About this RNA:
Shown here is a 70-nucleotide RNA from Tepidiphilus thermophilus, a member of the family "SAH (S-adenosyl-L-homocysteine) riboswitch aptamer". A reference for the family is Wang et al. (2008), "Riboswitches that sense S-adenosylhomocysteine and activate genes involved in coenzyme recycling", Mol Cell. Rfam 15.1 lists 1,354 matches to the family in 1,132 species. Rfam links the family to the GO terms S-adenosylhomocysteine metabolic process and regulation of gene expression.
RNA sequence: GCAACCGAGGAGCGCUGCAACCCGCCCGCGCGGGCCAGGCUCGGUUCAGAUCCAACGGCGCUCACCCGUC
Dot-bracket structure: ..((((((............(((((....)))))......))))))........................